[Rfam]
RNA: mir-36 microRNA precursor family
Organism: Caenorhabditis nigoni
RNA sequence: UCUGAUGGUCCAGGUCGGACCUCUGCUGGUUUCUUCCACGGUGAUAUUCCAAGAAUAAGGUUAUCACCGGGUAAAAACUGGUAGAGGUCUGGCCUAGGCAG
Numbered sequence: 001u002c003u004g005a006u007g008g009u010c011c012a013g014g015u016c017g018g019a020c021c022u023c024u025g026c027u028g029g030u031u032u033c034u035u036c037c038a039c040g041g042u043g044a045u046a047u048u049c050c051a052a053g054a055a056u057a058a059g060g061u062u063a064u065c066a067c068c069g070g071g072u073a074a075a076a077a078c079u080g081g082u083a084g085a086g087g088u089c090u091g092g093c094c095u096a097g098g099c100a101g
Base pairs, nucleotide, nucleotide: 016091017090018089019088020087021086022085024083025082026081027080028079029078030077031076032075034073036071037070039069041067042066043065044064045063046062